Description
This 75-nucleotide RNA from Psylliodes chrysocephalus belongs to the Rfam family "mir-971 microRNA precursor family". The family has 6 seed sequences and 118 matches in Rfam 15.1. The match comes from Rfam's covariance-model search (56 bits). Its family is annotated with RISC complex and miRNA-mediated post-transcriptional gene silencing in the Gene Ontology. The base pairs follow the family's consensus structure, which was predicted with RNAalifold. Lineage of the source: Eukaryota > Bilateria > Altocrustacea > Pterygota > Psylliodes.
RNA sequence: UAGUUGGGUCACUCUAAGUUUGAACACCAAGCUAUGUUUAUCCGUUUGGUGUUCUACCUUACAGUGAGCGGACUG
Numbered sequence: 001u002a003g004u005u006g007g008g009u010c011a012c013u014c015u016a017a018g019u020u021u022g023a024a025c026a027c028c029a030a031g032c033u034a035u036g037u038u039u040a041u042c043c044g045u046u047u048g049g050u051g052u053u054c055u056a057c058c059u060u061a062c063a064g065u066g067a068g069c070g071g072a073c074u075g
Stems, first nucleotide, its partner, number of pairs: 007069001009067005015061003025051008